[Rfam]
RNA sequence: GCUGUUAGAAUCCUGAAUUUAUUUGCGAGCUGGACGACAUCGUGAUCUAGCACCAUGUAAAUUCAGCAUUUUGAUGU
Numbered sequence: 001g002c003u004g005u006u007a008g009a010a011u012c013c014u015g016a017a018u019u020u021a022u023u024u025g026c027g028a029g030c031u032g033g034a035c036g037a038c039a040u041c042g043u044g045a046u047c048u049a050g051c052a053c054c055a056u057g058u059a060a061a062u063u064c065a066g067c068a069u070u071u072u073g074a075u076g077u
Stems, first nucleotide, its partner, number of pairs: 013066010024055002027053001030050002033047002035044002
Shown here is a 77-nucleotide sequence from Cylicocyclus nassatus, a member of the family "mir-83 microRNA precursor family". A search with the family's covariance model found it, with a score of 63 bits. Rfam 15.1 lists 60 matches to the family in 55 species. Taxonomically the source falls in Cylicocyclus (Eukaryota, Opisthokonta, Bilateria, Rhabditomorpha). For this family Rfam cites "An abundant class of tiny RNAs with probable regulatory roles in Caenorhabditis elegans" (Lau et al., Science, 2001).